[Rfam]
Nucleotides: 113
Stems, first nucleotide, its partner, number of pairs: 001109008010101002014097002016092006044074001047071002
Number, partner (000 for none) and nucleotide at each position: 001109g002108a003107c004106u005105g006104g007103u008102c009000c010101a011100a012000a013000g014097g015096u016092a017091g018090u019089g020088a021087g022000u023000u024000a025000u026000c027000u028000c029000a030000g031000u032000u033000g034000a035000u036000u037000g038000u039000u040000c041000a042000c043000a044074g045000u046000c047071a048070g049000u050000u051000u052000c053000a054000g055000a056000u057000c058000a059000a060000a061000c062000u063000c064000c065000u066000u067000g068000u069000u070048c071047u072000a073000c074044u075000c076000u077000u078000u079000c080000c081000c082000c083000u084000c085000u086000u087021c088020u089019c090018a091017c092016u093000a094000u095000u096015g097014c098000u099000c100011u101010u102008g103007a104006c105005u106004a107003g108002u109001c110000u111000a112000a113000a
Shown here is a 113-nucleotide RNA sequence from Cercocebus atys, a member of the family "Y RNA". Pairs were carried over by alignment from the consensus structure, which is taken from published work. Lineage of the source: Eukaryota > Craniata > Euteleostomi > Cercopithecoidea > Cercocebus. From the family's description: Y RNAs are components of the Ro ribonucleoprotein particle (Ro RNP), in association with Ro60 and La proteins. The Y RNAs and Ro60 and La proteins are well conserved, but the function of the Ro RNP is not known. In humans the RNA component can be one of four small RNAs -- hY1, hY3, hY4 and hY5. These small RNAs are predicted to fold into a conserved secondary structure containing three stem structures. A search with the family's covariance model found it, with a score of 68 bits. The family has 104 seed sequences and 26,986 matches in Rfam 15.1.